[Rfam]
RNA sequence: UUGGGUGAAAUCAAUGUGGGUCCUACACUUUGGAAAUGGGACCCCGCAUAAAGUGGUGGGACCUACAUUGAUUUCACCCAA
Numbered sequence: 001u002u003g004g005g006u007g008a009a010a011u012c013a014a015u016g017u018g019g020g021u022c023c024u025a026c027a028c029u030u031u032g033g034a035a036a037u038g039g040g041a042c043c044c045c046g047c048a049u050a051a052a053g054u055g056g057u058g059g060g061a062c063c064u065a066c067a068u069u070g071a072u073u074u075c076a077c078c079c080a081a
Stems, first nucleotide, its partner, number of pairs: 001081018023059003026055007

Shown here is an 81-nucleotide RNA from Medicago truncatula, a member of the family "MIR5269 microRNA precursor family".
A search with the family's covariance model found it, with a score of 81 bits.
Gene Ontology terms of the family: RISC complex and miRNA-mediated post-transcriptional gene silencing.
The family has 2 seed sequences and 389 matches in Rfam 15.1.